[Rfam]
RNA sequence: CAAUAAAUAAUGUUCGUAUCUCGUAUAUGUUUAGAGAUUUGGUCUAAACGUUUCUACCGAACGGCCUUAAACUGUUUGACUACGGGUGUUUAUCUUAUACAU
Numbered sequence: 001c002a003a004u005a006a007a008u009a010a011u012g013u014u015c016g017u018a019u020c021u022c023g024u025a026u027a028u029g030u031u032u033a034g035a036g037a038u039u040u041g042g043u044c045u046a047a048a049c050g051u052u053u054c055u056a057c058c059g060a061a062c063g064g065c066c067u068u069a070a071a072c073u074g075u076u077u078g079a080c081u082a083c084g085g086g087u088g089u090u091u092a093u094c095u096u097a098u099a100c101a102u
Base pairs, nucleotide, nucleotide: 020086021085022084023083024082025081029049030048031047032046033045034044035043058078059077060076061075062074063073064072
A member of the RNA family "Purine riboswitch aptamer" from Clostridium homopropionicum, 102 nucleotides long. The family's consensus secondary structure is taken from published work. Gene Ontology term of the family: purine nucleobase biosynthetic process.